A member of the RNA family "Small nucleolar RNA R11/Z151" from Capsicum annuum, 87 nucleotides long.
The source organism's lineage runs through Eukaryota, Euphyllophyta, Solanoideae, Capsiceae and Capsicum.
The literature on the family includes a 2001 paper in J Mol Biol by Barneche et al., "Identification of 66 box C/D snoRNAs in Arabidopsis thaliana: extensive gene duplications generated multiple isoforms predicting new ribosomal RNA 2'-O-methylation sites".
The family's RNA type in Rfam is C/D-box small nucleolar RNA.
Gene Ontology terms of the family: RNA processing and nucleolus.
RNA sequence: GGGCUUAUGAUGAUAACUAAAAUUAUCUUAGCGAAUUUCAGAGAAAUUUAAUUAUCAGUGAUCUGAUUGUUACACACACUGAGGUGC
Numbered sequence: 001g002g003g004c005u006u007a008u009g010a011u012g013a014u015a016a017c018u019a020a021a022a023u024u025a026u027c028u029u030a031g032c033g034a035a036u037u038u039c040a041g042a043g044a045a046a047u048u049u050a051a052u053u054a055u056c057a058g059u060g061a062u063c064u065g066a067u068u069g070u071u072a073c074a075c076a077c078a079c080u081g082a083g084g085u086g087c
Base pairs, nucleotide, nucleotide: 001087003085004084005083